[Rfam]
Shown here is a 69-nucleotide sequence from Anguilla anguilla, a member of the family "mir-24 microRNA precursor family".
This family represents the microRNA (miRNA) mir-24 family. miRNAs are transcribed as ~70nt precursors (modelled here) and subsequently processed by the Dicer enzyme to give a ~22nt product.
The family has 63 seed sequences and 1,372 matches in Rfam 15.1.
The source organism's lineage runs through Eukaryota, Metazoa, Gnathostomata, Elopomorpha and Anguilla.
The match comes from Rfam's covariance-model search (67 bits).
RNA sequence: GUCUCCUGUGCCUGCUGUGCUGAUAAUCAGUGUCUCUCAUCAGCUGGCUCAGUUCAGCAGGAACAGCAG
Numbered sequence: 001g002u003c004u005c006c007u008g009u010g011c012c013u014g015c016u017g018u019g020c021u022g023a024u025a026a027u028c029a030g031u032g033u034c035u036c037u038c039a040u041c042a043g044c045u046g047g048c049u050c051a052g053u054u055c056a057g058c059a060g061g062a063a064c065a066g067c068a069g
Base pairs, nucleotide, nucleotide: 003069004068006066008064009063011061012060013059015057016056017055019053020052021051022050023049027047028046029045030044031043